[Rfam]
RNA sequence: GCGGAGGAAUGAUGACCUAAAAGGCCGAAUUGCAGUGCUGCCCUAAGCAGUUAACACUCAUUGGGUGGCAUGAUGACAAAAACCCCUGAAGCGAAACUUUAACUGACCUCUGC
Numbered sequence: 001g002c003g004g005a006g007g008a009a010u011g012a013u014g015a016c017c018u019a020a021a022a023g024g025c026c027g028a029a030u031u032g033c034a035g036u037g038c039u040g041c042c043c044u045a046a047g048c049a050g051u052u053a054a055c056a057c058u059c060a061u062u063g064g065g066u067g068g069c070a071u072g073a074u075g076a077c078a079a080a081a082a083c084c085c086c087u088g089a090a091g092c093g094a095a096a097c098u099u100u101a102a103c104u105g106a107c108c109u110c111u112g113c
Base pairs, nucleotide, nucleotide: 001113002112003111004110005109006108007107014103024033025032034100035099037097041093042091044089046087047086050071051070054066055065057063072085
About this RNA: Small nucleolar RNA SNORD89: a 113-nucleotide RNA sequence from Aquarana catesbeiana. snoRNA HBII-289 belongs to the family of C/D snoRNAs. It is the human orthologue of the mouse MBII-289 and has no identified RNA target. Pairs were carried over by alignment from the consensus structure, which was predicted with RNAalifold. On this family, see Huttenhofer et al., EMBO J 2001: "RNomics: an experimental approach that identifies 201 candidates for novel, small, non-messenger RNAs in mouse". The match comes from Rfam's covariance-model search (72 bits). Rfam classes the family as a C/D-box small nucleolar RNA. Rfam links the family to the GO terms RNA processing and nucleolus. Lineage of the source: Eukaryota > Euteleostomi > Amphibia > Ranoidea > Aquarana.